[Rfam]
RNA sequence: ACCUAGGGUAGAGGAGCUAUAAUUAUGAUUAUUUAUUCUUAGCUGGCAGGCAAUUAGGAAUAAGGAAAGGAAUUAUGGCCGAAGAUUACACUUUGGCAAAGGGGUAAUCUGGUUUUGUAUAAAAUAUAUACAAAAUUGUCACUAUUGGUUUUAUAGUGGAGAGCUACAAGGUGC
Numbered sequence: 001a002c003c004u005a006g007g008g009u010a011g012a013g014g015a016g017c018u019a020u021a022a023u024u025a026u027g028a029u030u031a032u033u034u035a036u037u038c039u040u041a042g043c044u045g046g047c048a049g050g051c052a053a054u055u056a057g058g059a060a061u062a063a064g065g066a067a068a069g070g071a072a073u074u075a076u077g078g079c080c081g082a083a084g085a086u087u088a089c090a091c092u093u094u095g096g097c098a099a100a101g102g103g104g105u106a107a108u109c110u111g112g113u114u115u116u117g118u119a120u121a122a123a124a125u126a127u128a129u130a131c132a133a134a135a136u137u138g139u140c141a142c143u144a145u146u147g148g149u150u151u152u153a154u155a156g157u158g159g160a161g162a163g164c165u166a167c168a169a170g171g172u173g174c
Stems, first nucleotide, its partner, number of pairs: 008167004016079009032064008083110007091102004111137011139159007

Overview:
A member of the RNA family "Lysine riboswitch aptamer" from Clostridium acidisoli, 174 nucleotides long. The base pairs follow the family's consensus structure, which is taken from published work.